This 125-nucleotide RNA from Theobroma umbraticum belongs to the Rfam family "MIR396 microRNA precursor family". A reference for the family is Jones-Rhoades and Bartel (2004), "Computational identification of plant microRNAs and their targets, including a stress-induced miRNA", Mol Cell. The match comes from Rfam's covariance-model search (82 bits). Rfam links the family to the GO terms RISC complex and miRNA-mediated post-transcriptional gene silencing.
[Rfam]
RNA sequence: UGUCAUGCUUUUCCACAGCUUUCUUGAACUUCUCUUUCACUUUUUUCUUCACAAUUUUGCUAGCAGCUUUUGGUGCAACUAUAGCUAGCAUAGAAGUUCAAGAAAACUGUGGGAUAAUAUGGCAA
Numbered sequence: 001u002g003u004c005a006u007g008c009u010u011u012u013c014c015a016c017a018g019c020u021u022u023c024u025u026g027a028a029c030u031u032c033u034c035u036u037u038c039a040c041u042u043u044u045u046u047c048u049u050c051a052c053a054a055u056u057u058u059g060c061u062a063g064c065a066g067c068u069u070u071u072g073g074u075g076c077a078a079c080u081a082u083a084g085c086u087a088g089c090a091u092a093g094a095a096g097u098u099c100a101a102g103a104a105a106a107c108u109g110u111g112g113g114a115u116a117a118u119a120u121g122g123c124a125a
Stems, first nucleotide, its partner, number of pairs: 003122005013112003017108002020105003024101004029096005